[Rfam]
RNA sequence: AGCUACCGAGGUGAGAACGGCCUCCUCACACGCCACGUAAGUGGCAAAGUAGGCGAAAGCCGAAGGGGAUGCGGGAAUUUGGCGCCCCGCCGAUAGCU
Numbered sequence: 001a002g003c004u005a006c007c008g009a010g011g012u013g014a015g016a017a018c019g020g021c022c023u024c025c026u027c028a029c030a031c032g033c034c035a036c037g038u039a040a041g042u043g044g045c046a047a048a049g050u051a052g053g054c055g056a057a058a059g060c061c062g063a064a065g066g067g068g069a070u071g072c073g074g075g076a077a078u079u080u081g082g083c084g085c086c087c088c089g090c091c092g093a094u095a096g097c098u
Stems, first nucleotide, its partner, number of pairs: 001098005007092002011029005020083003031066001032045004071090005
RNA: skipping-rope RNA